The record is an 82-nucleotide sequence from Aspergillus calidoustus, which matches "tRNA" in Rfam. Transfer RNA (tRNA) molecules are approximately 80 nucleotides in length. Their secondary structure includes four short double-helical elements and three loops (D, anti-codon, and T loops). Further hydrogen bonds mediate the characteristic L-shaped molecular structure. tRNAs have two regions of fundamental functional importance: the anti-codon, which is responsible for specific mRNA codon recognition, and the 3' end, to which the tRNAs corresponding amino acid is attached (by aminoacyl-tRNA synthetases). tRNAs cope with the degeneracy of the genetic code in two manners: having more than one tRNA (with a specific anti-codon) for a particular amino acid; and 'wobble' base-pairing, i.e. permitting non-standard base-pairing at the 3rd anti-codon position. Clan: tRNA clan.

[Rfam]
RNA sequence: GGCCGAGUGGCCUAAUGGUAAGGCGUUGCUUUCCGGUUGCGGAAGCCAGCAAAGAUUGCGCGUUCGAGUCGCGUCUUGGUCG
Numbered sequence: 001g002g003c004c005g006a007g008u009g010g011c012c013u014a015a016u017g018g019u020a021a022g023g024c025g026u027u028g029c030u031u032u033c034c035g036g037u038u039g040c041g042g043a044a045g046c047c048a049g050c051a052a053a054g055a056u057u058g059c060g061c062g063u064u065c066g067a068g069u070c071g072c073g074u075c076u077u078g079g080u081c082g
Stems, first nucleotide, its partner, number of pairs: 001081007010024004026052005058074005